[Rfam]
RNA: U4atac minor spliceosomal RNA
Organism: Cebus imitator
RNA sequence: UCGCUCCUGGGAUUGGGGUUGCACCAUUGUCCAAUGAGUGCAUAGUGAGGGCAGUACUGCUAACACCUAAACAGCACACUCACAUCAACUAAAGCUCUGCUUUACGUUGGUGCAAUUUUUGGAAAA
Numbered sequence: 001u002c003g004c005u006c007c008u009g010g011g012a013u014u015g016g017g018g019u020u021g022c023a024c025c026a027u028u029g030u031c032c033a034a035u036g037a038g039u040g041c042a043u044a045g046u047g048a049g050g051g052c053a054g055u056a057c058u059g060c061u062a063a064c065a066c067c068u069a070a071a072c073a074g075c076a077c078a079c080u081c082a083c084a085u086c087a088a089c090u091a092a093a094g095c096u097c098u099g100c101u102u103u104a105c106g107u108u109g110g111u112g113c114a115a116u117u118u119u120u121g122g123a124a125a126a
Stems, first nucleotide, its partner, number of pairs: 006018003021060003026055007038046002083112005090104006